[Rfam]
RNA sequence: CUGAUGGCGGCGUCUGGGUGGAAAUCGGAAUCAAUCGCCCAAUUCCCCUUCGCACCGGAGAAAAGUUCCCGGUAGGGCAGCGCCUAAGUGUCAG
Numbered sequence: 001c002u003g004a005u006g007g008c009g010g011c012g013u014c015u016g017g018g019u020g021g022a023a024a025u026c027g028g029a030a031u032c033a034a035u036c037g038c039c040c041a042a043u044u045c046c047c048c049u050u051c052g053c054a055c056c057g058g059a060g061a062a063a064a065g066u067u068c069c070c071g072g073u074a075g076g077g078c079a080g081c082g083c084c085u086a087a088g089u090g091u092c093a094g
Stems, first nucleotide, its partner, number of pairs: 001094005009084005015041004023035001025034001027032001046077004050072001056071003060068002

A member of the RNA family "L4-Archaeoglobi ribosomal protein leades", 94 nucleotides long. The literature on the family includes a 2020 paper in BMC Microbiol by Eckert and Weinberg, "Discovery of 20 novel ribosomal leader candidates in bacteria and archaea". It is annotated as a cis-regulatory leader. It is one of the family's seed sequences.